This 45-nucleotide RNA sequence from Paenibacillus larvae belongs to the Rfam family "PreQ1 (pre queuosine) riboswitch aptamer". Rfam describes the family as follows. This family is a bacterial riboswitch that binds to the metabolite preQ1, an intermediate in the biosynthesis of the modified nucleoside queuosine from GTP. One example of this riboswitch is located in the leader of the Bacillus subtilis ykvJKLM (queCDEF) operon which encodes four genes necessary for queuosine production. Pairs were carried over by alignment from the consensus structure. Taxonomically the source falls in Paenibacillus larvae subsp. larvae (Bacteria, Paenibacillaceae, Paenibacillus, Paenibacillus larvae).
RNA sequence: AUGGGAGAGGUUCGAGAUCUUCCCUCUAUAAAAAACUAAGGAGCU
Numbered sequence: 001a002u003g004g005g006a007g008a009g010g011u012u013c014g015a016g017a018u019c020u021u022c023c024c025u026c027u028a029u030a031a032a033a034a035a036c037u038a039a040g041g042a043g044c045u
Base pairs, nucleotide, nucleotide: 006027007026008025009024010023016037
Dot-bracket structure: .....(((((.....[......))))).........]........